Fluoride riboswitch aptamer (crcB RNA motif): a 78-nucleotide RNA from Oribacterium sp. KHPX15. Pairs were carried over by alignment from the consensus structure, which is taken from published work. The match comes from Rfam's covariance-model search (44 bits).
[Rfam]
Nucleotides: 078
Base pairs, nucleotide, nucleotide: 010026011025012024013023016069017068018067019066020065021064047059048058049057
Number, partner (000 for none) and nucleotide at each position: 001000c002000a003000u004000a005000g006000a007000c008000a009000a010026g011025g012024g013023a014000a015000u016069g017068a018067a019066g020065u021064u022000u023013u024012c025011c026010c027000g028000u029000a030000g031000u032000a033000u034000u035000u036000a037000u038000a039000c040000u041000a042000a043000a044000a045000c046000c047059g048058c049057u050000a051000u052000u053000u054000a055000c056000a057049g058048g059047c060000u061000g062000a063000u064021g065020a066019c067018u068017u069016c070000u071000g072000c073000g074000a075000a076000u077000u078000a